RNA sequence: GUGGGCUAUGGGGACAUGUGUCCCACCACACCUGGGGGCAAAAUCGUAGGUACCCUCUGUGCCAUUGCUGGAGUCCUCACCAUUGCCCUUCCUGUGCCCGUCAUUGUCUCCAAU
Numbered sequence: 001g002u003g004g005g006c007u008a009u010g011g012g013g014a015c016a017u018g019u020g021u022c023c024c025a026c027c028a029c030a031c032c033u034g035g036g037g038g039c040a041a042a043a044u045c046g047u048a049g050g051u052a053c054c055c056u057c058u059g060u061g062c063c064a065u066u067g068c069u070g071g072a073g074u075c076c077u078c079a080c081c082a083u084u085g086c087c088c089u090u091c092c093u094g095u096g097c098c099c100g101u102c103a104u105u106g107u108c109u110c111c112a113a114u
Stems, first nucleotide, its partner, number of pairs: 001114002004111002008107004013102003018097004037077002040074001049063003
RNA: Potassium channel RNA editing signal
Organism: Vombatus ursinus